The record is a 115-nucleotide RNA sequence from Eisenbergiella massiliensis, which matches "azaaromatic riboswitch aptamer (yjdF RNA)" in Rfam.

RNA sequence: AAAUGCAGAGAUAAAAACACAGCCCGGUAGGUAGUCCGGGCGCAGCGGACAAUAUUUGUGAAAGCGCUGUCAGUAACCCUCCCUCCUUGGGUCGUCCGUUCUUUGUUCAUAAAUA
Numbered sequence: 001a002a003a004u005g006c007a008g009a010g011a012u013a014a015a016a017a018c019a020c021a022g023c024c025c026g027g028u029a030g031g032u033a034g035u036c037c038g039g040g041c042g043c044a045g046c047g048g049a050c051a052a053u054a055u056u057u058g059u060g061a062a063a064g065c066g067c068u069g070u071c072a073g074u075a076a077c078c079c080u081c082c083c084u085c086c087u088u089g090g091g092u093c094g095u096c097c098g099u100u101c102u103u104u105g106u107u108c109a110u111a112a113a114u115a
Stems, first nucleotide, its partner, number of pairs: 005106007022041006042070006081091003
Overview:
Taxonomically the source falls in Eisenbergiella (Bacteria, Clostridia, Lachnospirales, Lachnospiraceae).